[Rfam]
RNA sequence: GAUCGAUCCGCCUCCUCCGGCAGGGACUGCCGGAGGAGGCGGAUCCUCCGGCAGGGACUGCUGGAGGAGGCGGAUCCUCCGGCAGGGACUGCUGGAGGAGGC
Numbered sequence: 001g002a003u004c005g006a007u008c009c010g011c012c013u014c015c016u017c018c019g020g021c022a023g024g025g026a027c028u029g030c031c032g033g034a035g036g037a038g039g040c041g042g043a044u045c046c047u048c049c050g051g052c053a054g055g056g057a058c059u060g061c062u063g064g065a066g067g068a069g070g071c072g073g074a075u076c077c078u079c080c081g082g083c084a085g086g087g088a089c090u091g092c093u094g095g096a097g098g099a100g101g102c
Stems, first nucleotide, its partner, number of pairs: 009072008020061004027054010076098008
Dot-bracket structure: ........((((((((...((((...((((((((((........))))))))))...))))...))))))))...((((((((.......))))))))....
Rfam assigns this 102-nucleotide RNA from Dissostichus mawsoni to the family "Termite-flg RNA". It scores 40 bits against the family's covariance model. The base pairs follow the family's consensus structure, which is taken from published work.